RNA: TPP riboswitch aptamer (THI element)
RNA sequence: AGCGUCUGCUGGGGGGGCCGUUCCACGAUUCGCGCUUCGGCGCAUCGCGGAUACGGCUGAGAGGGCUUAGGGCCGACCCCAAAAACCUGAUCCGGUUCGUACCGGCGGAGGGAAGCGGAUGGCAGGGGAG
Numbered sequence: 001a002g003c004g005u006c007u008g009c010u011g012g013g014g015g016g017g018c019c020g021u022u023c024c025a026c027g028a029u030u031c032g033c034g035c036u037u038c039g040g041c042g043c044a045u046c047g048c049g050g051a052u053a054c055g056g057c058u059g060a061g062a063g064g065g066c067u068u069a070g071g072g073c074c075g076a077c078c079c080c081a082a083a084a085a086c087c088u089g090a091u092c093c094g095g096u097u098c099g100u101a102c103c104g105g106c107g108g109a110g111g112g113a114a115g116c117g118g119a120u121g122g123c124a125g126g127g128g129a130g
Stems, first nucleotide, its partner, number of pairs: 006118005011080004016074001017057005065073003086111003092105004